[Rfam]
RNA sequence: UUCUGGACAAUGCUUGUCACUUGGGGGUUACGACGGACCGACUCUUAAAUCGGUCACCUUUACCACCCUCGGGAAGGUCUGAGACUAGGGUCUGCGAUACACUUCCUAGACGGAAGCGCUCUGAGAAGGGCGGCGGCGGACUAGAAACUACCCUCGCAGCGGACCAAACGGCAGGCGAUGGAUGAAUUGGUCUUCGGACCAACUCCGGAUGUCGGUCUGUCUGUUGAGUUGGGAAACGCUGCGACCAGCUUCGCAGCACAAUUGACAAGGUGGCGUCUCUGUGCGCCAUAACUCAAUUCAGACUAUUCUGUUCAGAA
Numbered sequence: 001u002u003c004u005g006g007a008c009a010a011u012g013c014u015u016g017u018c019a020c021u022u023g024g025g026g027g028u029u030a031c032g033a034c035g036g037a038c039c040g041a042c043u044c045u046u047a048a049a050u051c052g053g054u055c056a057c058c059u060u061u062a063c064c065a066c067c068c069u070c071g072g073g074a075a076g077g078u079c080u081g082a083g084a085c086u087a088g089g090g091u092c093u094g095c096g097a098u099a100c101a102c103u104u105c106c107u108a109g110a111c112g113g114a115a116g117c118g119c120u121c122u123g124a125g126a127a128g129g130g131c132g133g134c135g136g137c138g139g140a141c142u143a144g145a146a147a148c149u150a151c152c153c154u155c156g157c158a159g160c161g162g163a164c165c166a167a168a169c170g171g172c173a174g175g176c177g178a179u180g181g182a183u184g185a186a187u188u189g190g191u192c193u194u195c196g197g198a199c200c201a202a203c204u205c206c207g208g209a210u211g212u213c214g215g216u217c218u219g220u221c222u223g224u225u226g227a228g229u230u231g232g233g234a235a236a237c238g239c240u241g242c243g244a245c246c247a248g249c250u251u252c253g254c255a256g257c258a259c260a261a262u263u264g265a266c267a268a269g270g271u272g273g274c275g276u277c278u279c280u281g282u283g284c285g286c287c288a289u290a291a292c293u294c295a296a297u298u299c300a301g302a303c304u305a306u307u308c309u310g311u312u313c314a315g316a317a
Base pairs, nucleotide, nucleotide: 001317002316003315004314007311008310009309014267017264023070024069025068026067027066036055037054038053039052040051041050079301080300081299082298083297089246090245091244092243102116103115104114105113106112117132118131119130120129121128122127133242134241135240136239137238138237153228154227155226270289271288272287273286274285275284276283
Shown here is a 317-nucleotide RNA sequence from Hypsibius exemplaris, a member of the family "Nuclear RNase P". On this family, see Frank and Pace, Annu Rev Biochem 1998: "Ribonuclease P: unity and diversity in a tRNA processing ribozyme". Rfam's curators write: Ribonuclease P (RNase P) is a ubiquitous endoribonuclease, found in archaea, bacteria and eukarya as well as chloroplasts and mitochondria. Its best characterised activity is the generation of mature 5'-ends of tRNAs by cleaving the 5'-leader elements of precursor-tRNAs. Cellular RNase Ps are ribonucleoproteins. It scores 140 bits against the family's covariance model.